[Rfam]
RNA sequence: GCAAGCGAACAUGCUUUAUUCUAUGGCCACUUUGAGUUACGAUAAUUACCAUGCUAAUUUACGAGAUUACAGUAACUUCUUACUAAGUGAUUUACUAUAACAUUAUCGUAAAUAUCACCGUGAGUUGUAGUAACACGAGUAUUGUAAAUGCAUAUUCAUGUUAUCGUAAAUUGGUACACAAAUAUUAUCGUAAAUCAAUGUGGCUAUAGAAUAAGUUAUUCUAUGGC
Numbered sequence: 001g002c003a004a005g006c007g008a009a010c011a012u013g014c015u016u017u018a019u020u021c022u023a024u025g026g027c028c029a030c031u032u033u034g035a036g037u038u039a040c041g042a043u044a045a046u047u048a049c050c051a052u053g054c055u056a057a058u059u060u061a062c063g064a065g066a067u068u069a070c071a072g073u074a075a076c077u078u079c080u081u082a083c084u085a086a087g088u089g090a091u092u093u094a095c096u097a098u099a100a101c102a103u104u105a106u107c108g109u110a111a112a113u114a115u116c117a118c119c120g121u122g123a124g125u126u127g128u129a130g131u132a133a134c135a136c137g138a139g140u141a142u143u144g145u146a147a148a149u150g151c152a153u154a155u156u157c158a159u160g161u162u163a164u165c166g167u168a169a170a171u172u173g174g175u176a177c178a179c180a181a182a183u184a185u186u187a188u189c190g191u192a193a194a195u196c197a198a199u200g201u202g203g204c205u206a207u208a209g210a211a212u213a214a215g216u217u218a219u220u221c222u223a224u225g226g227c
Base pairs, nucleotide, nucleotide: 001227002226004224007221008220009219012218013217015215016214017213018212019211020210021209022208023207024206025205026204027203028202029201030200032198033197037193038192039191040190041189042188043187044186045185046184047182052176053175054174055173056172057171058170059169060168061167062166065165066164067163069161070160071159072157074155080147081146082145083144087142088141089140091138092137093132094131095130096129097128098127099126100125101124103122108116